U7 small nuclear RNA: a 62-nucleotide sequence from Prolemur simus. It scores 47 bits against the family's covariance model.

[Rfam]
RNA sequence: GAGAAUCACACCACUUUUAGAAUUUGUCUAGCAGGUUUUCUGGUCCUCACCAGAAGAUCAUC
Numbered sequence: 001g002a003g004a005a006u007c008a009c010a011c012c013a014c015u016u017u018u019a020g021a022a023u024u025u026g027u028c029u030a031g032c033a034g035g036u037u038u039u040c041u042g043g044u045c046c047u048c049a050c051c052a053g054a055a056g057a058u059c060a061u062c
Stems, first nucleotide, its partner, number of pairs: 034059011
On this family, see Marz et al., Genomics Proteomics Bioinformatics 2007: "U7 snRNAs: a computational survey". The family's consensus secondary structure was predicted with PFOLD.